This 129-nucleotide RNA sequence from Tupaia belangeri belongs to the Rfam family "Small nucleolar RNA SNORA44". ACA44 is a member of the H/ACA class of snoRNA that guide the sites of modification of uridines to pseudouridines. The source organism's lineage runs through Eukaryota, Sarcopterygii, Theria, Tupaia and Tupaia belangeri. Its family is annotated with RNA processing and nucleolus in the Gene Ontology. Clan: SNORA44 clan. On this family, see Huttenhofer et al., EMBO J 2001: "RNomics: an experimental approach that identifies 201 candidates for novel, small, non-messenger RNAs in mouse".
RNA sequence: CAGCAUGUCUCCAAGGGCUGUGACAGCUGGUGGCCACGGGUUCUCCCACUCCACGCGAGAGCAACGUGGAGGGACUUUGACCCCCAGAUCACACCGUACCCGCAGCUUCCAGUCACCUUUCCUAUAAAC
Numbered sequence: 001c002a003g004c005a006u007g008u009c010u011c012c013a014a015g016g017g018c019u020g021u022g023a024c025a026g027c028u029g030g031u032g033g034c035c036a037c038g039g040g041u042u043c044u045c046c047c048a049c050u051c052c053a054c055g056c057g058a059g060a061g062c063a064a065c066g067u068g069g070a071g072g073g074a075c076u077u078u079g080a081c082c083c084c085c086a087g088a089u090c091a092c093a094c095c096g097u098a099c100c101c102g103c104a105g106c107u108u109c110c111a112g113u114c115a116c117c118u119u120u121c122c123u124a125u126a127a128a129c
Base pairs, nucleotide, nucleotide: 011039012038016035017034018033019032020031021030068122069121070120071119072118073117085102087100